The family of this 510-nucleotide part of an RNA from Plasmodium falciparum is "Eukaryotic small subunit ribosomal RNA". The literature on the family includes a 2002 paper in BMC Bioinformatics by Cannone et al., "The comparative RNA web (CRW) site: an online database of comparative sequence and structure information for ribosomal, intron, and other RNAs". The source organism's lineage runs through Eukaryota, Sar, Haemosporida, Plasmodium and Plasmodium falciparum. The sequence is in the family's curated seed alignment. The family's consensus secondary structure is taken from published work.
RNA sequence: CGUUCGUAGUUGAAUAUUAAAGAAUCCGAUGUUUCAUUUAAACUGGUUUGGGAAAACCAAAUAUAUUAUAUAUUUUGCUUUGUUCAAAAUAAGGUUUUCUAAUAAAUUAUGUUUUUAUCAGAUAUGACAGAAUCUUUUUUAAAAUCUCUUCAAUAUGCUUUUAUUGCUUUUGAGAGGUUUUGUUACUUUGAGUAAAAUUAAGUGUUCAUAACAGACGGGUAGUCAUGAUUGAGUUCAUUGUGUUUGAAUACUACAGCAUGGAAUAACAAAUAUGAAUAAGCUAAUUAUUUUUUUUUUUCAUAAUUUUUUUUGAUAUUCUUAUUAGCUUAGUUACGAUUAAUAGGAGUAGCUUUGGGGGCAUUCGUAUUCAGAUGUCAGAGGUGAAAUUCUAAGAUUUUCUGGAGACGGACUACUGCGAAAGCAUUUGCCUAAUCUAUUUCCAUUAAUCAAGAACGAAAGUUAAGGGAGUGAAGACGAUCAGAUACCGUCGUAAUCUUAACCAUAAACUAU
Numbered sequence: 001c002g003u004u005c006g007u008a009g010u011u012g013a014a015u016a017u018u019a020a021a022g023a024a025u026c027c028g029a030u031g032u033u034u035c036a037u038u039u040a041a042a043c044u045g046g047u048u049u050g051g052g053a054a055a056a057c058c059a060a061a062u063a064u065a066u067u068a069u070a071u072a073u074u075u076u077g078c079u080u081u082g083u084u085c086a087a088a089a090u091a092a093g094g095u096u097u098u099c100u101a102a103u104a105a106a107u108u109a110u111g112u113u114u115u116u117a118u119c120a121g122a123u124a125u126g127a128c129a130g131a132a133u134c135u136u137u138u139u140u141a142a143a144a145u146c147u148c149u150u151c152a153a154u155a156u157g158c159u160u161u162u163a164u165u166g167c168u169u170u171u172g173a174g175a176g177g178u179u180u181u182g183u184u185a186c187u188u189u190g191a192g193u194a195a196a197a198u199u200a201a202g203u204g205u206u207c208a209u210a211a212c213a214g215a216c217g218g219g220u221a222g223u224c225a226u227g228a229u230u231g232a233g234u235u236c237a238u239u240g241u242g243u244u245u246g247a248a249u250a251c252u253a254c255a256g257c258a259u260g261g262a263a264u265a266a267c268a269a270a271u272a273u274g275a276a277u278a279a280g281c282u283a284a285u286u287a288u289u290u291u292u293u294u295u296u297u298u299c300a301u302a303a304u305u306u307u308u309u310u311u312g313a314u315a316u317u318c319u320u321a322u323u324a325g326c327u328u329a330g331u332u333a334c335g336a337u338u339a340a341u342a343g344g345a346g347u348a349g350c351u352u353u354g355g356g357g358g359c360a361u362u363c364g365u366a367u368u369c370a371g372a373u374g375u376c377a378g379a380g381g382u383g384a385a386a387u388u389c390u391a392a393g394a395u396u397u398u399c400u401g402g403a404g405a406c407g408g409a410c411u412a413c414u415g416c417g418a419a420a421g422c423a424u425u426u427g428c429c430u431a432a433u434c435u436a437u438u439u440c441c442a443u444u445a446a447u448c449a450a451g452a453a454c455g456a457a458a459g460u461u462a463a464g465g466g467a468g469u470g471a472a473g474a475c476g477a478u479c480a481g482a483u484a485c486c487g488u489c490g491u492a493a494u495c496u497u498a499a500c501c502a503u504a505a506a507c508u509a510u
Stems, first nucleotide, its partner, number of pairs: 002454004009447003343441004347436003351432001356430005363407002367403006374396001378389003415422002459500006468494002473489004